RNA: Molybdenum/Tungsten riboswitch aptamer (Moco RNA motif)
RNA sequence: CUGCAAAUGACACUCAAGCCUUUAUACCUAACUCUUUAUGACAAGGUGUGCUGGCCGCAGCCUUCGCGCUGCCAGGGUACAGGAAGAAAUGACUGUAUCUCCCGUAUUUGGAAGGUGUGCUGGUGCCACAAUU
Numbered sequence: 001c002u003g004c005a006a007a008u009g010a011c012a013c014u015c016a017a018g019c020c021u022u023u024a025u026a027c028c029u030a031a032c033u034c035u036u037u038a039u040g041a042c043a044a045g046g047u048g049u050g051c052u053g054g055c056c057g058c059a060g061c062c063u064u065c066g067c068g069c070u071g072c073c074a075g076g077g078u079a080c081a082g083g084a085a086g087a088a089a090u091g092a093c094u095g096u097a098u099c100u101c102c103c104g105u106a107u108u109u110g111g112a113a114g115g116u117g118u119g120c121u122g123g124u125g126c127c128a129c130a131a132u133u
Stems, first nucleotide, its partner, number of pairs: 003127001006124001011119003015115001018055003023050006033041002057072005075100008085090001101111002